[Rfam]
RNA sequence: ACUCAACAUUAAACAAAAUAAAAAAGGUAAGUGGAGUUGUUAAAGCGUGCCGUCAUCGAACGGAUUCUUGACCAGCUCAGUAGCCUUAAACCUGUUCGCGGAGUUU
Numbered sequence: 001a002c003u004c005a006a007c008a009u010u011a012a013a014c015a016a017a018a019u020a021a022a023a024a025a026g027g028u029a030a031g032u033g034g035a036g037u038u039g040u041u042a043a044a045g046c047g048u049g050c051c052g053u054c055a056u057c058g059a060a061c062g063g064a065u066u067c068u069u070g071a072c073c074a075g076c077u078c079a080g081u082a083g084c085c086u087u088a089a090a091c092c093u094g095u096u097c098g099c100g101g102a103g104u105u106u
Stems, first nucleotide, its partner, number of pairs: 024087005034078005043069003050063004
6S-Flavo RNA: a 106-nucleotide RNA sequence from Capnocytophaga canis. Pairs were carried over by alignment from the consensus structure, which is taken from published work. It is annotated as a small RNA. It scores 86 bits against the family's covariance model. Taxonomically the source falls in Capnocytophaga (Bacteria, Pseudomonadati, Bacteroidota, Flavobacteriales).